[Rfam]
RNA: c-di-AMP riboswitch aptamer (ydaO/yuaA leader)
RNA sequence: UCCGGAGCCGGGGACCCAACCACUUCUGGGGUGAAUCCCGCUCGAGGCGCGACCGCGGCAGUCCGACCGGACUGUCGCCGGCGCGAGGAGGGCGGGUAGGGCAAGUCGUGCCCGAACCCGUCAGCUCACCCGGUA
Numbered sequence: 001u002c003c004g005g006a007g008c009c010g011g012g013g014a015c016c017c018a019a020c021c022a023c024u025u026c027u028g029g030g031g032u033g034a035a036u037c038c039c040g041c042u043c044g045a046g047g048c049g050c051g052a053c054c055g056c057g058g059c060a061g062u063c064c065g066a067c068c069g070g071a072c073u074g075u076c077g078c079c080g081g082c083g084c085g086a087g088g089a090g091g092g093c094g095g096g097u098a099g100g101g102c103a104a105g106u107c108g109u110g111c112c113c114g115a116a117c118c119c120g121u122c123a124g125c126u127c128a129c130c131c132g133g134u135a
Base pairs, nucleotide, nucleotide: 007134008133009132010131011130012129017028018027029119030118031117037096038095039094040093041092042091043090099113100112101111102110